[Rfam]
RNA sequence: AUAAACGCAUCGGGGUGCUGUGAAAAACAGCUGAGAUUAUACCCGGGGAACCUGAUUCUGGUUAGUACCAGCGAAGGGAAUGCAAGCUUCGAUUUU
Numbered sequence: 001a002u003a004a005a006c007g008c009a010u011c012g013g014g015g016u017g018c019u020g021u022g023a024a025a026a027a028c029a030g031c032u033g034a035g036a037u038u039a040u041a042c043c044c045g046g047g048g049a050a051c052c053u054g055a056u057u058c059u060g061g062u063u064a065g066u067a068c069c070a071g072c073g074a075a076g077g078g079a080a081u082g083c084a085a086g087c088u089u090c091g092a093u094u095u096u
Stems, first nucleotide, its partner, number of pairs: 007083004011045004016039001017031005051077003058071004
Notes
A member of the RNA family "TPP riboswitch aptamer (THI element)" from Ohtaekwangia koreensis, 96 nucleotides long. Lineage of the source: Bacteria > Pseudomonadati > Cytophagia > Fulvivirgaceae > Ohtaekwangia. A search with the family's covariance model found it, with a score of 71 bits.